The record is a 112-nucleotide RNA from Vulcaniibacterium thermophilum, which matches "Xanthomonadaceae sRNA asX1" in Rfam. Taxonomically the source falls in Vulcaniibacterium (Bacteria, Pseudomonadota, Lysobacterales, Lysobacteraceae). The family's consensus secondary structure was predicted with CMfinder.
[Rfam]
RNA sequence: CACCCAGCGGGGCAGCGCUCCAAGUGCGCGAUCGGAUCUGGAACGGGGGCCGAUCACGCGCCCGCGGGGGAAGCCGAGGAUCGGAUGUCGGGGGACGUCCGGUCCUCUUUUU
Numbered sequence: 001c002a003c004c005c006a007g008c009g010g011g012g013c014a015g016c017g018c019u020c021c022a023a024g025u026g027c028g029c030g031a032u033c034g035g036a037u038c039u040g041g042a043a044c045g046g047g048g049g050c051c052g053a054u055c056a057c058g059c060g061c062c063c064g065c066g067g068g069g070g071a072a073g074c075c076g077a078g079g080a081u082c083g084g085a086u087g088u089c090g091g092g093g094g095a096c097g098u099c100c101g102g103u104c105c106u107c108u109u110u111u112u
Stems, first nucleotide, its partner, number of pairs: 003069003007065005012059002015029004030055006038047002076107014